[Rfam]
RNA sequence: GGUUGAUGACCGGUUCGUAAUAACGUUUCAGGACCCGGGGGCGGUACCCGGCGCCUCCACCAGAAACACCCUGCCCCGGAUACCGGACGGGGCCCGAGCGCGCGUUUUUCGCGCAGCCUGGGAUCGGGGUGCUUCUGCUGGGGGCGAAGUUAGGUUCGACUGGACGGUAAAGGGAUCGCGAGUUCUACCCUGUUUCGGCAGGAUAAGAUGCGACUUUCGGUAAGGACUCGACCGGUUCGGCGCAGGCAACCCCUGUUCCGGGCACCUGACCAAAACUCUAAAUGCCAACGAUAACGUUGUCAUGGAUGCCCGCCUCGCGGCGUAA
Numbered sequence: 001g002g003u004u005g006a007u008g009a010c011c012g013g014u015u016c017g018u019a020a021u022a023a024c025g026u027u028u029c030a031g032g033a034c035c036c037g038g039g040g041g042c043g044g045u046a047c048c049c050g051g052c053g054c055c056u057c058c059a060c061c062a063g064a065a066a067c068a069c070c071c072u073g074c075c076c077c078g079g080a081u082a083c084c085g086g087a088c089g090g091g092g093c094c095c096g097a098g099c100g101c102g103c104g105u106u107u108u109u110c111g112c113g114c115a116g117c118c119u120g121g122g123a124u125c126g127g128g129g130u131g132c133u134u135c136u137g138c139u140g141g142g143g144g145c146g147a148a149g150u151u152a153g154g155u156u157c158g159a160c161u162g163g164a165c166g167g168u169a170a171a172g173g174g175a176u177c178g179c180g181a182g183u184u185c186u187a188c189c190c191u192g193u194u195u196c197g198g199c200a201g202g203a204u205a206a207g208a209u210g211c212g213a214c215u216u217u218c219g220g221u222a223a224g225g226a227c228u229c230g231a232c233c234g235g236u237u238c239g240g241c242g243c244a245g246g247c248a249a250c251c252c253c254u255g256u257u258c259c260g261g262g263c264a265c266c267u268g269a270c271c272a273a274a275a276c277u278c279u280a281a282a283u284g285c286c287a288a289c290g291a292u293a294a295c296g297u298u299g300u301c302a303u304g305g306a307u308g309c310c311c312g313c314c315u316c317g318c319g320g321c322g323u324a325a
Stems, first nucleotide, its partner, number of pairs: 001189003005185001013176004025165003029162003035051005052146007190261003
RNA: permuted transfer-messenger RNA
Organism: Methylobacterium sp. GXS13